[Rfam]
Source information
Rfam assigns this 389-nucleotide sequence from Tsuneonella litorea to the family "Bacterial RNase P class A". By type it is a ribozyme. Ribonuclease P (RNase P) is a ubiquitous endoribonuclease, found in archaea, bacteria and eukarya as well as chloroplasts and mitochondria. Its best characterised activity is the generation of mature 5'-ends of tRNAs by cleaving the 5'-leader elements of precursor-tRNAs. Cellular RNase Ps are ribonucleoproteins.
RNA sequence: CCAGGGGGCCGGGCAGCCGCGUCGCUCGCCAGAGCGUCGAGGAAAGUCCGGGCUCCACGAAACGAGGGUGGCGGGUAACGCCCGCCCGGGGAAACCCGAGGGACAGUGCCACAGAGAGUAGACCGCCUGCGACCCGCAGGUAAGGCUGAAAGGGUGCGGUAAGAGCGCACCGGGGCCCUGGCGACAGGGCUCGCACGGCAAACCCCACCCGGAGCAAGGCCAAAUAGGGGUCUCGCGCGAAAGCAGGGGCGUUUCGUCCCGAGAGACCCGGGUUGGCUGCUUGAGCGCACGGAGCAAUCCGUCGCCGAGAUGAAUGGCUGCCCCGGCGGCGUGGGUCGCUAGCGAUACCGCCCGCCGGACAGAACCCGGCUUACAGGCCCCCUGGCUCC
Number, nucleotide and partner (000 for none) at each position: 001c385002c384003a383004g382005g381006g380007g379008g378009c377010c376011g374012g322013g321014c320015a319016g318017c317018c316019g000020c039021g038022u000023c036024g035025c034026u033027c032028g000029c000030c000031a000032g027033a026034g025035c024036g023037u000038c021039g020040a000041g000042g000043a000044a372045a371046g370047u000048c369049c368050g367051g366052g365053c214054u213055c212056c211057a000058c000059g000060a000061a000062a254063c000064g252065a000066g210067g209068g208069u207070g206071g085072c084073g083074g082075g081076u000077a000078a000079c000080g000081c075082c074083c073084g072085c071086c100087c098088g097089g096090g095091g000092a000093a000094a000095c090096c089097c088098g087099a000100g086101g205102g204103a000104c000105a000106g203107u202108g199109c198110c197111a000112c000113a000114g000115a000116g000117a000118g000119u000120a000121g000122a000123c145124c144125g141126c140127c139128u138129g137130c136131g135132a000133c000134c000135c131136g130137c129138a128139g127140g126141u125142a000143a000144g124145g123146c000147u000148g000149a000150a000151a000152g000153g171154g170155u169156g168157c167158g166159g000160u000161a000162a000163g000164a000165g000166c158167g157168c156169a155170c154171c153172g194173g192174g191175g190176c189177c188178c187179u186180g185181g000182c000183g000184a000185c180186a179187g178188g177189g176190c175191u174192c173193g000194c172195a000196c000197g110198g109199c108200a000201a000202a107203c106204c102205c101206c070207a069208c068209c067210c066211g056212g055213a054214g053215c000216a000217a000218g278219g277220c276221c275222a000223a000224a000225u000226a000227g000228g269229g268230g267231u266232c265233u264234c000235g000236c000237g000238c000239g000240a000241a000242a000243g000244c000245a000246g260247g259248g258249g257250c256251g000252u064253u000254u062255c000256g250257u249258c248259c247260c246261g000262a000263g000264a233265g232266a231267c230268c229269c228270g000271g000272g000273u000274u000275g221276g220277c219278u218279g000280c000281u000282u000283g000284a000285g305286c304287g303288c000289a302290c301291g300292g299293a298294g000295c000296a000297a000298u293299c292300c291301g290302u289303c287304g286305c285306c000307g000308a000309g000310a000311u000312g000313a000314a000315u000316g018317g017318c016319u015320g014321c013322c012323c000324c000325g000326g000327c000328g000329g000330c000331g000332u000333g000334g000335g000336u000337c000338g000339c000340u000341a000342g000343c000344g000345a000346u000347a000348c000349c000350g000351c000352c000353c000354g000355c000356c000357g000358g000359a000360c000361a000362g000363a000364a000365c052366c051367c050368g049369g048370c046371u045372u044373a000374c011375a000376g010377g009378c008379c007380c006381c005382c004383u003384g002385g001386c000387u000388c000389c000